[Rfam]
RNA: Bacterial large subunit ribosomal RNA, nucleotides 2643 to 2903
Organism: Mesoplasma syrphidae
RNA sequence: GGAAAAUUGAAGAGAGCUGACUCUAGUACGAGAGGACCGAGUUGGACACAUCCCUGGUGCUCCAGUUGUCAUGCCAAUGGCACAGCUGGGUAGCUAUAUGUGGAAAGGAUAAUCGCUGAAGGCAUCUAAGCGAGAAGCCUCCUUUAAGAUGAAUUUUCCCAUUCGUAAGAUGUAAGAUCCCAUGUAGACCACAUGGUUGAUAGGAUGGAUGUGUAAGCGCUGCGAGGCGUUAAGCUAACCAUUACUAAUAGAUCGAGAGAA
Numbered sequence: 001g002g003a004a005a006a007u008u009g010a011a012g013a014g015a016g017c018u019g020a021c022u023c024u025a026g027u028a029c030g031a032g033a034g035g036a037c038c039g040a041g042u043u044g045g046a047c048a049c050a051u052c053c054c055u056g057g058u059g060c061u062c063c064a065g066u067u068g069u070c071a072u073g074c075c076a077a078u079g080g081c082a083c084a085g086c087u088g089g090g091u092a093g094c095u096a097u098a099u100g101u102g103g104a105a106a107g108g109a110u111a112a113u114c115g116c117u118g119a120a121g122g123c124a125u126c127u128a129a130g131c132g133a134g135a136a137g138c139c140u141c142c143u144u145u146a147a148g149a150u151g152a153a154u155u156u157u158c159c160c161a162u163u164c165g166u167a168a169g170a171u172g173u174a175a176g177a178u179c180c181c182a183u184g185u186a187g188a189c190c191a192c193a194u195g196g197u198u199g200a201u202a203g204g205a206u207g208g209a210u211g212u213g214u215a216a217g218c219g220c221u222g223c224g225a226g227g228c229g230u231u232a233a234g235c236u237a238a239c240c241a242u243u244a245c246u247a248a249u250a251g252a253u254c255g256a257g258a259g260a261a
Stems, first nucleotide, its partner, number of pairs: 001159008011145004017045007047102005055096003062089005067082006106140003113133005163170002173256001176254004180196005201247003204243005211235001217230005